[Rfam]
RNA sequence: GGGCCCCCAGGGCAAAACCGGCGCGAGCCGGUGACGCAAAGCCUCCGGUCUCCCCGCCUUCACGGCCAUGGAGAUAGCGGGGCCGCCAGC
Dot-bracket structure: ...........((...((((((....))))))...))...(((.((((((.(..................).)))..)))))).......
Numbered sequence: 001g002g003g004c005c006c007c008c009a010g011g012g013c014a015a016a017a018c019c020g021g022c023g024c025g026a027g028c029c030g031g032u033g034a035c036g037c038a039a040a041g042c043c044u045c046c047g048g049u050c051u052c053c054c055c056g057c058c059u060u061c062a063c064g065g066c067c068a069u070g071g072a073g074a075u076a077g078c079g080g081g082g083c084c085g086c087c088a089g090c
Stems, first nucleotide, its partner, number of pairs: 012037002017032006041083003045080003048075003052071001